This 108-nucleotide sequence belongs to the Rfam family "COG3943 RNA". Rfam's curators put it in the seed alignment. The base pairs follow the family's consensus structure, which is taken from published work.

RNA sequence: CGCGCUCCACACAGAUUCAAAUCUGAGCAUGAGGCCAUCCAAUGGAGGAUGUAACACCAGUAGUUAAGUUGCUUGGGAUAUAGCAAAUGUUAACUACAUCAAUGGUGU
Numbered sequence: 001c002g003c004g005c006u007c008c009a010c011a012c013a014g015a016u017u018c019a020a021a022u023c024u025g026a027g028c029a030u031g032a033g034g035c036c037a038u039c040c041a042a043u044g045g046a047g048g049a050u051g052u053a054a055c056a057c058c059a060g061u062a063g064u065u066a067a068g069u070u071g072c073u074u075g076g077g078a079u080a081u082a083g084c085a086a087a088u089g090u091u092a093a094c095u096a097c098a099u100c101a102a103u104g105g106u107g108u
Stems, first nucleotide, its partner, number of pairs: 012025005036051005054108005060097008069086005